[Rfam]
RNA sequence: AUCGUUCAACUCUUAUUUGAGUCGGAAGUAGACAGUUUGUCGAAGGAACGCAUG
Numbered sequence: 001a002u003c004g005u006u007c008a009a010c011u012c013u014u015a016u017u018u019g020a021g022u023c024g025g026a027a028g029u030a031g032a033c034a035g036u037u038u039g040u041c042g043a044a045g046g047a048a049c050g051c052a053u054g
Base pairs, nucleotide, nucleotide: 003050004049005048006047007046009022010021011020012019025051031041032040033039

Rfam assigns this 54-nucleotide RNA to the family "Glutamine riboswitch aptamer (glnA leader)". The family's consensus secondary structure is taken from published work. Rfam's curators put it in the seed alignment. Its family is annotated with glutamine binding in the Gene Ontology.